Rfam assigns this 77-nucleotide sequence from Myotis davidii to the family "mir-574 microRNA precursor family". Pairs were carried over by alignment from the consensus structure, which was predicted with RNAalifold. For this family Rfam cites "Patterns of known and novel small RNAs in human cervical cancer" (Lui et al., Cancer Res, 2007).
RNA sequence: AGGCCUAGAGAGAGAGGCAGGGUCUGAUAGCCUUUGUGGCAGCUGUAGAUCAGCCAUUGCCUCUCUCUUUCUCUCCA
Numbered sequence: 001a002g003g004c005c006u007a008g009a010g011a012g013a014g015a016g017g018c019a020g021g022g023u024c025u026g027a028u029a030g031c032c033u034u035u036g037u038g039g040c041a042g043c044u045g046u047a048g049a050u051c052a053g054c055c056a057u058u059g060c061c062u063c064u065c066u067c068u069u070u071c072u073c074u075c076c077a
Stems, first nucleotide, its partner, number of pairs: 008069013022055001024053004028045004